[Rfam]
RNA sequence: GUGCCUUAAACUAAUGAGUAAGGAAAAUAUAAAUCGCACGUGAUGGUGCGGUUAUGCCAUAACAUUAACGGCUUUUAAUUUUUGAAGGGGUCCAGGUCGUACUUGGGUGGCCUACCUACUUUCGUAGGAUGCCCUCGAUGCUGCGAUCUGCCCU
Numbered sequence: 001g002u003g004c005c006u007u008a009a010a011c012u013a014a015u016g017a018g019u020a021a022g023g024a025a026a027a028u029a030u031a032a033a034u035c036g037c038a039c040g041u042g043a044u045g046g047u048g049c050g051g052u053u054a055u056g057c058c059a060u061a062a063c064a065u066u067a068a069c070g071g072c073u074u075u076u077a078a079u080u081u082u083u084g085a086a087g088g089g090g091u092c093c094a095g096g097u098c099g100u101a102c103u104u105g106g107g108u109g110g111c112c113u114a115c116c117u118a119c120u121u122u123c124g125u126a127g128g129a130u131g132c133c134c135u136c137g138a139u140g141c142u143g144c145g146a147u148c149u150g151c152c153c154u
Stems, first nucleotide, its partner, number of pairs: 004023005032053008056072003087154005094149007103138002105134005111128005
Rfam assigns this 154-nucleotide sequence from Strigamia maritima to the family "U12 minor spliceosomal RNA". Its family is annotated with mRNA branch site recognition, pre-mRNA branch point binding and U12 snRNP in the Gene Ontology. Pairs were carried over by alignment from the consensus structure. Its Rfam clan is "U2 clan". Taxonomically the source falls in Strigamia (Eukaryota, Chilopoda, Geophilomorpha, Linotaeniidae).